RNA sequence: GUGUCUGGCUUCCCUUGAUUUCGUUGUGCCUGUGAGCCCGUAUGGUUCGUGGGCAGUGCCAAGAAUGUGAAGCAACAGCGACUGUUCCUCUCGCUAUCCGGCGCGGAUCUUUUUGAUGCGAUUGGACGUCGAGGAACUACAAUU
Numbered sequence: 001g002u003g004u005c006u007g008g009c010u011u012c013c014c015u016u017g018a019u020u021u022c023g024u025u026g027u028g029c030c031u032g033u034g035a036g037c038c039c040g041u042a043u044g045g046u047u048c049g050u051g052g053g054c055a056g057u058g059c060c061a062a063g064a065a066u067g068u069g070a071a072g073c074a075a076c077a078g079c080g081a082c083u084g085u086u087c088c089u090c091u092c093g094c095u096a097u098c099c100g101g102c103g104c105g106g107a108u109c110u111u112u113u114u115g116a117u118g119c120g121a122u123u124g125g126a127c128g129u130c131g132a133g134g135a136a137c138u139a140c141a142a143u144u
Stems, first nucleotide, its partner, number of pairs: 001076002003073002008068002011065001013063001016061002019058001027055007036046003084137007092128002097126005
Small nucleolar RNA snoR136: a 144-nucleotide RNA sequence from Setaria viridis. Lineage of the source: Eukaryota > Poaceae > Panicoideae > Cenchrinae > Setaria. By type it is an H/ACA-box small nucleolar RNA. Gene Ontology terms of the family: nucleolus and RNA processing.